Plasmodium RNA of unkown function RUF1: a 264-nucleotide RNA sequence from Plasmodium falciparum. The sequence is in the family's curated seed alignment. The source organism's lineage runs through Eukaryota, Alveolata, Apicomplexa, Plasmodiidae and Plasmodium falciparum.
[Rfam]
RNA sequence: UGGUUAAAUUACACUCAACGAUUUAAUUUUUUUUUUUGAAUAUUUUAUCGUUAUUUAUUUUUUAACCUAAAUUAAGUUAUCAUUCAAUUUUUUAUUUUCCAAAAAUAAAAAUUGUAUUGAUAUUUCUCUUCAUAUUCCCGGUAUUUUCAACGCCCAUAAUAGGGCAGCUUCUUGUUAAGUAGUGUUGAUUUUGCCGUAACAAAACGGAGAGGAACAAAUAUAAAUGAAAUAAAAAAUAUGUAAAAAUAAAUGAAUAUUAUAUGG
Number, nucleotide and partner (000 for none) at each position: 001u000002g067003g066004u065005u064006a063007a062008a061009u000010u000011a000012c000013a000014c000015u000016c000017a052018a051019c050020g049021a048022u047023u000024u000025a044026a043027u042028u000029u040030u039031u038032u000033u000034u000035u000036u000037u000038g031039a030040a029041u000042a027043u026044u025045u000046u000047a022048u021049c020050g019051u018052u017053a000054u000055u000056u000057a000058u000059u000060u000061u008062u007063u006064a005065a004066c003067c002068u000069a000070a000071a000072u000073u000074a000075a000076g000077u000078u000079a000080u000081c000082a000083u228084u227085c226086a225087a000088u000089u111090u110091u109092u108093u107094a106095u105096u104097u103098u000099c000100c000101a000102a000103a097104a096105a095106u094107a093108a092109a091110a090111a089112u223113u222114g221115u220116a219117u218118u217119g000120a000121u000122a000123u000124u213125u212126c211127u210128c209129u208130u207131c206132a000133u000134a000135u000136u000137c000138c000139c000140g195141g194142u193143a192144u000145u000146u000147u188148c187149a186150a185151c184152g165153c164154c163155c162156a000157u000158a000159a000160u000161a000162g155163g154164g153165c152166a000167g183168c182169u181170u000171c179172u178173u000174g000175u000176u000177a000178a172179g171180u000181a169182g168183u167184g151185u150186u149187g148188a147189u000190u000191u000192u143193g142194c141195c140196g205197u204198a000199a000200c000201a000202a000203a000204a197205c196206g131207g130208a129209g128210a127211g126212g125213a124214a000215c000216a000217a118218a117219u116220a115221u114222a113223a112224a000225u086226g085227a084228a083229a000230u000231a000232a000233a000234a000235a000236a000237u000238a000239u000240g000241u000242a000243a000244a000245a000246a000247u000248a000249a000250a000251u000252g000253a000254a000255u000256a000257u000258u000259a000260u000261a000262u000263g000264g000